The record is a 91-nucleotide RNA from Caryophanon tenue, which matches "SAM riboswitch aptamer (S box leader)" in Rfam.

RNA sequence: CGAUUAUCCAGAGAAGUUGAGGGACUUGGCCCUAUGACACUUCAGCAACCUCUACCUACGUAGAAAGGUGCUAAUUCCAGACAGAUAAGAG
Numbered sequence: 001c002g003a004u005u006a007u008c009c010a011g012a013g014a015a016g017u018u019g020a021g022g023g024a025c026u027u028g029g030c031c032c033u034a035u036g037a038c039a040c041u042u043c044a045g046c047a048a049c050c051u052c053u054a055c056c057u058a059c060g061u062a063g064a065a066a067g068g069u070g071c072u073a074a075u076u077c078c079a080g081a082c083a084g085a086u087a088a089g090a091g
Base pairs, nucleotide, nucleotide: 001091004088005087006086007085008084013043014042015041016040017039021032022031023030026080027079028078029077044072045071046070047069049068050067051064052063053062054061076083
Dot-bracket structure: (..(((((....(((((...(((..[[[[)))......)))))((((.((((((......))))..))))))...(]]]]..))))))..)